[Rfam]
RNA sequence: UUCUUUGUAGCUCAAUGGUAGAGCAAAUGGCUGUUAACCAUUAGGUUGUAGGUACAAAUCCUAUCGAAGAAG
Number, nucleotide and partner (000 for none) at each position: 001u071002u070003c069004u068005u067006u066007g065008u000009a000010g024011c023012u022013c021014a000015a000016u000017g000018g000019u000020a000021g013022a012023g011024c010025a000026a042027a041028u040029g039030g038031c000032u000033g000034u000035u000036a000037a000038c030039c029040a028041u027042u026043a000044g000045g000046u000047u000048g064049u063050a062051g061052g060053u000054a000055c000056a000057a000058a000059u000060c052061c051062u050063a049064u048065c007066g006067a005068a004069g003070a002071a001072g000